RNA sequence: AGGAAACAACCACAGUGGCUGAGGCCAGCUCUGCAGCCCUGGAGUCAGCCCCCACAGUAGCUCCAGAACUCUCCGUCUGCAGGGCCUGGAGGCUCCGGGGCGGG
Numbered sequence: 001a002g003g004a005a006a007c008a009a010c011c012a013c014a015g016u017g018g019c020u021g022a023g024g025c026c027a028g029c030u031c032u033g034c035a036g037c038c039c040u041g042g043a044g045u046c047a048g049c050c051c052c053c054a055c056a057g058u059a060g061c062u063c064c065a066g067a068a069c070u071c072u073c074c075g076u077c078u079g080c081a082g083g084g085c086c087u088g089g090a091g092g093c094u095c096c097g098g099g100g101c102g103g104g
Base pairs, nucleotide, nucleotide: 002096003095004094007088008087010084011083017077018076019075021073022072023071027070028069030067031066032065033064035062039057040056041055
This 104-nucleotide RNA from Canis lupus belongs to the Rfam family "mir-8834 microRNA precursor family". NCBI's taxonomy places the organism under Eukaryota, Metazoa, Sarcopterygii, Dipnotetrapodomorpha, Canis lupus.